The family of this 97-nucleotide RNA sequence from Callithrix jacchus is "mir-544 microRNA precursor family". For this family Rfam cites "Mammalian microRNAs: experimental evaluation of novel and previously annotated genes" (Chiang et al., Genes Dev, 2010).

RNA sequence: AUCAUGUGGAGAUCUUGUUAAAAUGCAAAUUCUGAUACAGUAGGUCUGGGUAAGGCCUGAGAUUCUGCAUUUCUAACAUGUUCCCACAUGAUACCAA
Number, nucleotide and partner (000 for none) at each position: 001a000002u000003c090004a089005u088006g000007u000008g000009g084010a000011g082012a000013u000014c080015u000016u078017g077018u076019u075020a074021a072022a071023a070024u000025g068026c067027a066028a000029a064030u000031u062032c061033u060034g000035a000036u000037a000038c000039a000040g000041u000042a000043g000044g000045u000046c000047u000048g000049g000050g000051u000052a000053a000054g000055g000056c000057c000058u000059g000060a033061g032062a031063u000064u029065c000066u027067g026068c025069a000070u023071u022072u021073c000074u020075a019076a018077c017078a016079u000080g014081u000082u011083c000084c009085c000086a000087c000088a005089u004090g003091a000092u000093a000094c000095c000096a000097a000